[Rfam]
RNA: Small nucleolar RNA SNORD100
Organism: Grus americana
RNA sequence: GCUGUACAAUGAUGAUACUUUGGCUCCCUCUACUGAUGCUUGUGAGGAAAGUAGCCAUCCGUUACCCAAUACUGAGAGUACAGC
Numbered sequence: 001g002c003u004g005u006a007c008a009a010u011g012a013u014g015a016u017a018c019u020u021u022g023g024c025u026c027c028c029u030c031u032a033c034u035g036a037u038g039c040u041u042g043u044g045a046g047g048a049a050a051g052u053a054g055c056c057a058u059c060c061g062u063u064a065c066c067c068a069a070u071a072c073u074g075a076g077a078g079u080a081c082a083g084c
Base pairs, nucleotide, nucleotide: 001084002083003082004081005080006079